[Rfam]
RNA sequence: GUAAAGACAAAGGGGUGCCCUAAAGGCUGAGAUUAUACCCUACGAACCUGAUGCAGAUAAUACUGACGCAGGGAAUUGUUAUUUUUCUUUUC
Numbered sequence: 001g002u003a004a005a006g007a008c009a010a011a012g013g014g015g016u017g018c019c020c021u022a023a024a025g026g027c028u029g030a031g032a033u034u035a036u037a038c039c040c041u042a043c044g045a046a047c048c049u050g051a052u053g054c055a056g057a058u059a060a061u062a063c064u065g066a067c068g069c070a071g072g073g074a075a076u077u078g079u080u081a082u083u084u085u086u087c088u089u090u091u092c
Base pairs, nucleotide, nucleotide: 006080007079008078009077010076011041012040013039014038016035017027018026019025047072048071049070050069054065055064056063
RNA: TPP riboswitch aptamer (THI element)
Organism: Bacteroides graminisolvens